This 132-nucleotide RNA from Rhodoferax ferrireducens belongs to the Rfam family "ZMP/ZTP riboswitch aptamer (pfl RNA motif)". A reference for the family is Jones et al. (2019), "Co-crystal structure of the Fusobacterium ulcerans ZTP riboswitch using an X-ray free-electron laser", Acta Crystallogr F Struct Biol Commun. Rfam's curators put it in the seed alignment. The base pairs follow the family's consensus structure, which is taken from published work.

[Rfam]
RNA sequence: CGGGUGGCACGCGACUGGCGAUAGGCUCUCAACCCGGCAAGGGCGUGAGACGCUGAAGUGGGAACACCACGGGGGAGCGUGCCGCAUUGCCAAUGUGGCAACUGUGUUUAGCCGUUCGCCUGGGCAGCCCUG
Numbered sequence: 001c002g003g004g005u006g007g008c009a010c011g012c013g014a015c016u017g018g019c020g021a022u023a024g025g026c027u028c029u030c031a032a033c034c035c036g037g038c039a040a041g042g043g044c045g046u047g048a049g050a051c052g053c054u055g056a057a058g059u060g061g062g063a064a065c066a067c068c069a070c071g072g073g074g075g076a077g078c079g080u081g082c083c084g085c086a087u088u089g090c091c092a093a094u095g096u097g098g099c100a101a102c103u104g105u106g107u108u109u110a111g112c113c114g115u116u117c118g119c120c121u122g123g124g125c126a127g128c129c130c131u132g
Stems, first nucleotide, its partner, number of pairs: 004085009015074002017120005058070004109127001111125003